[Rfam]
RNA sequence: GGGGAUUUUCUUAGAACCCCAUACGAUUCGUGUUAAUAGUGUUGUCUUUGGCCGGGCAGCAUGGUUAGGACAAGC
Numbered sequence: 001g002g003g004g005a006u007u008u009u010c011u012u013a014g015a016a017c018c019c020c021a022u023a024c025g026a027u028u029c030g031u032g033u034u035a036a037u038a039g040u041g042u043u044g045u046c047u048u049u050g051g052c053c054g055g056g057c058a059g060c061a062u063g064g065u066u067a068g069g070a071c072a073a074g075c
Base pairs, nucleotide, nucleotide: 001020002019003018004017006015007014008013033068034067035066036065037064039062040061041060042059043058044057045056046055047054
RNA: L13-Bacteroidia ribosomal protein leader